The family of this 167-nucleotide RNA sequence from Acetivibrio thermocellus is "M-box riboswitch aptamer (ykoK leader)". For this family Rfam cites "Magnesium-sensing riboswitches in bacteria" (Ramesh and Winkler, RNA Biol, 2010). It is one of the family's seed sequences. M-box riboswitch, also know as ykoK leader is described as a metaloregulatory RNA that sense divalent metals and function as a genetic control element of genes related to divalent metal transport in bacteria.
RNA sequence: GAAUAUUUUUGUUAGGUGAGGCUCCUAUACAGAAAGACGCUGCUGCCCGGAAACGUCGAAAGACGCCAAUGGGUAAACAGGCACUACCGGAUUAAGGUUUUGCUUAAUGCAGCUGGUGUUGCAGCCUAAGCUGUAUAGUGCCAAAGCUCAACGAGGGAAAGAUAUAA
Dot-bracket structure: ....(((((((([.(((..(((..((((((((......(((((.(((((....((((....))))....))))).....((((..(((......])))..))))....))))).(((......)))....)))))))).)))...)))..)).....))))))....